SAM riboswitch aptamer (S box leader): a 107-nucleotide sequence from Thermoactinomyces sp. AS95. The match comes from Rfam's covariance-model search (95 bits). The source organism's lineage runs through Bacteria, Bacillati, Bacillota, Bacilli and Thermoactinomyces.

RNA sequence: UUCUUAUCCAGAGAGGUGGAGGGACUGGCCCGAUGAAACCUCGGCAACGGGCUCUUCGGAGUACUGUGCCAAUUCCAGCAAGCGUUUUGAAGCUUGGAAGAUAAGAA
Dot-bracket structure: ((((((((....(((((...(((.[[[[)))......)))))((((.((.((((....))))..))))))...(]]]](((((........)))))..)))))))))